[Rfam]
RNA: chrB-b RNA
RNA sequence: UCGGGCUCUCAUACGCAGCCGCCCGGUUUCCCAAGACGCUCCGUCCAAGCGCUGC
Numbered sequence: 001u002c003g004g005g006c007u008c009u010c011a012u013a014c015g016c017a018g019c020c021g022c023c024c025g026g027u028u029u030c031c032c033a034a035g036a037c038g039c040u041c042c043g044u045c046c047a048a049g050c051g052c053u054g055c
Stems, first nucleotide, its partner, number of pairs: 001026006015055005035045004